[Rfam]
RNA sequence: AAUAGUUUUAUUAGAGGAACUCAUAUAAUCCCGUGAAUAUGGCACGGGAGUUUCUACAAAGCAGCCGUAAACUGCUUUACUAUGGGUGGAAUUUGUUGUUGC
Number, nucleotide and partner (000 for none) at each position: 001a000002a000003u000004a000005g000006u000007u000008u000009u000010a000011u000012u000013a000014g000015a000016g000017g000018a000019a087020c086021u085022c084023a083024u082025a081026u000027a000028a000029u049030c048031c047032c046033g045034u044035g043036a000037a000038u000039a000040u000041g000042g000043c035044a034045c033046g032047g031048g030049a029050g000051u000052u000053u000054c000055u000056a000057c000058a078059a077060a076061g075062c074063a073064g072065c000066c000067g000068u000069a000070a000071a000072c064073u063074g062075c061076u060077u059078u058079a000080c000081u025082a024083u023084g022085g021086g020087u019088g000089g000090a000091a000092u000093u000094u000095g000096u000097u000098g000099u000100u000101g000102c000
Shown here is a 102-nucleotide RNA sequence from Thermoanaerobacter sp. X514, a member of the family "Purine riboswitch aptamer". The family's consensus secondary structure is taken from published work. NCBI's taxonomy places the organism under Bacteria, Bacillati, Bacillota, Thermoanaerobacterales, Thermoanaerobacter.